Shown here is a 587-nucleotide part of an RNA from Chlorochromatium aggregatum, a member of the family "Bacterial large subunit ribosomal RNA".
The family's consensus secondary structure is taken from published work.
Rfam 15.1 lists 51,934 matches to the family in 10,816 species.

RNA sequence: CCCGCGGAAAGACGGAAAGACCCCAUGAACCUUUACUGUAGCUUUGUAUUGGAUUUUGAACAGAUCUGUGUAGGAUAGGUGGGAGGCUAAGAUGCAAGGUUGCUAGAUCUUGUGGAGCCAACGUUGAAAUACCACCCUGGUGUGUUUGAGGUUCUAACCUAGGUCCAUAAGCUGGACUGGGGACAGUGCAUGGUAGGCAGUUUGACUGGGGCGGUCUCCUCCCAAAGCGUAACGGAGGAGUUCGAAGGUACGCUAGUUACGGUCGGAAAUCGUGACGAUAGUGCAAUGGCAAAAGCGUGCUUGACUGCGAGACUGACAAGUCGAGCAGGUGCGAAAGCAGGACAUAGUGAUCCGGUGGUACUGUAUGGAAAGGCCAUCGCUCAACGGAUAAAAGGUACUCUGGGGAUAACAGGCUGAUACCGCCCAAGAGUUCAUAUCGACGGCGGUGUUUGGCACCUCGAUGUCGGCUCAUCUCAUCCUGGGGCUGUAGCAGGUCCCAAGGGUAUGGCUGUUCGCCAUUUAAAGAGGUACGUGAGCUGGGUUUAAAACGUCGUGAGACAGUUUGGUCCCUAUCUUCCGUGGGCGUU
Numbered sequence: 001c002c003c004g005c006g007g008a009a010a011g012a013c014g015g016a017a018a019g020a021c022c023c024c025a026u027g028a029a030c031c032u033u034u035a036c037u038g039u040a041g042c043u044u045u046g047u048a049u050u051g052g053a054u055u056u057u058g059a060a061c062a063g064a065u066c067u068g069u070g071u072a073g074g075a076u077a078g079g080u081g082g083g084a085g086g087c088u089a090a091g092a093u094g095c096a097a098g099g100u101u102g103c104u105a106g107a108u109c110u111u112g113u114g115g116a117g118c119c120a121a122c123g124u125u126g127a128a129a130u131a132c133c134a135c136c137c138u139g140g141u142g143u144g145u146u147u148g149a150g151g152u153u154c155u156a157a158c159c160u161a162g163g164u165c166c167a168u169a170a171g172c173u174g175g176a177c178u179g180g181g182g183a184c185a186g187u188g189c190a191u192g193g194u195a196g197g198c199a200g201u202u203u204g205a206c207u208g209g210g211g212c213g214g215u216c217u218c219c220u221c222c223c224a225a226a227g228c229g230u231a232a233c234g235g236a237g238g239a240g241u242u243c244g245a246a247g248g249u250a251c252g253c254u255a256g257u258u259a260c261g262g263u264c265g266g267a268a269a270u271c272g273u274g275a276c277g278a279u280a281g282u283g284c285a286a287u288g289g290c291a292a293a294a295g296c297g298u299g300c301u302u303g304a305c306u307g308c309g310a311g312a313c314u315g316a317c318a319a320g321u322c323g324a325g326c327a328g329g330u331g332c333g334a335a336a337g338c339a340g341g342a343c344a345u346a347g348u349g350a351u352c353c354g355g356u357g358g359u360a361c362u363g364u365a366u367g368g369a370a371a372g373g374c375c376a377u378c379g380c381u382c383a384a385c386g387g388a389u390a391a392a393a394g395g396u397a398c399u400c401u402g403g404g405g406a407u408a409a410c411a412g413g414c415u416g417a418u419a420c421c422g423c424c425c426a427a428g429a430g431u432u433c434a435u436a437u438c439g440a441c442g443g444c445g446g447u448g449u450u451u452g453g454c455a456c457c458u459c460g461a462u463g464u465c466g467g468c469u470c471a472u473c474u475c476a477u478c479c480u481g482g483g484g485c486u487g488u489a490g491c492a493g494g495u496c497c498c499a500a501g502g503g504u505a506u507g508g509c510u511g512u513u514c515g516c517c518a519u520u521u522a523a524a525g526a527g528g529u530a531c532g533u534g535a536g537c538u539g540g541g542u543u544u545a546a547a548a549c550g551u552c553g554u555g556a557g558a559c560a561g562u563u564u565g566g567u568c569c570c571u572a573u574c575u576u577c578c579g580u581g582g583g584c585g586u587u
Stems, first nucleotide, its partner, number of pairs: 001583008010575003014570002022404004027400002029396005035201004042193002045190004051154012064141003068137001078136005085119003094113008158181003162178006204216004217239006240385001242342002248300006254280002257275006281290002305328004311322003330339003353379007361372002413454003417451001418448007428438002465540001466538004470532001471529005478503002481498006505519005546564004550559003